[Rfam]
This 48-nucleotide RNA from Solanum tuberosum belongs to the Rfam family "MIR8032 microRNA precursor family". Pairs were carried over by alignment from the consensus structure, which was predicted with RNAalifold. Rfam's curators put it in the seed alignment. The organism belongs to Solanum, within Eukaryota. Its family is annotated with RISC complex and miRNA-mediated post-transcriptional gene silencing in the Gene Ontology.
RNA sequence: UGGUCGGCAUGACUCCCGAGGUUUUCAGUGUGAGUCGGUGCGAUUAGG
Numbered sequence: 001u002g003g004u005c006g007g008c009a010u011g012a013c014u015c016c017c018g019a020g021g022u023u024u025u026c027a028g029u030g031u032g033a034g035u036c037g038g039u040g041c042g043a044u045u046a047g048g
Stems, first nucleotide, its partner, number of pairs: 001046006008040003011036005017030002